The family of this 195-nucleotide RNA from Acidovorax sp. RAC01 is "Manganese Mn2+ riboswitch aptamer (yybP-ykoY)". The family has 29 seed sequences and 1,126 matches in Rfam 15.1. A reference for the family is Argaman et al. (2001), "Novel small RNA-encoding genes in the intergenic regions of Escherichia coli", Curr Biol. About the family: This RNA was originally discovered in E. coli during a large scale screen and was named SraF. The family was later found to exist upstream of related families of protein genes in many bacteria, including the the yybP and ykoK genes in B. subtilis. The specific functions of these proteins are unknown, but this structured RNA element may be involved in their genetic regulation as a riboswitch. It scores 57 bits against the family's covariance model. Taxonomically the source falls in Acidovorax (Bacteria, Pseudomonadota, Betaproteobacteria, Comamonadaceae). The base pairs follow the family's consensus structure.
[Rfam]
RNA sequence: CAGUGCGUCUUUGGGGAGUAGCCCGCCCGGCGCGCAACGCACCGGGGCAUGCGUCAACACACUUGGGUCCACACGUGGCCUAUGGCGCAUGCGGCUUUCAGGUUGGGCGAGACCAUUGACUGCAUGCCGAUCCACAUGGCCGGAGUCGGAGUGCAGUCAAUGCGUUUUCAAUUCGUCCGGCCGUACAAGGACCUC
Numbered sequence: 001c002a003g004u005g006c007g008u009c010u011u012u013g014g015g016g017a018g019u020a021g022c023c024c025g026c027c028c029g030g031c032g033c034g035c036a037a038c039g040c041a042c043c044g045g046g047g048c049a050u051g052c053g054u055c056a057a058c059a060c061a062c063u064u065g066g067g068u069c070c071a072c073a074c075g076u077g078g079c080c081u082a083u084g085g086c087g088c089a090u091g092c093g094g095c096u097u098u099c100a101g102g103u104u105g106g107g108c109g110a111g112a113c114c115a116u117u118g119a120c121u122g123c124a125u126g127c128c129g130a131u132c133c134a135c136a137u138g139g140c141c142g143g144a145g146u147c148g149g150a151g152u153g154c155a156g157u158c159a160a161u162g163c164g165u166u167u168u169c170a171a172u173u174c175g176u177c178c179g180g181c182c183g184u185a186c187a188a189g190g191a192c193c194u195c
Base pairs, nucleotide, nucleotide: 024044025043047092048091049090050089051088052087053086054085055084056083064082065081066080067079068078093194094193096191097190098189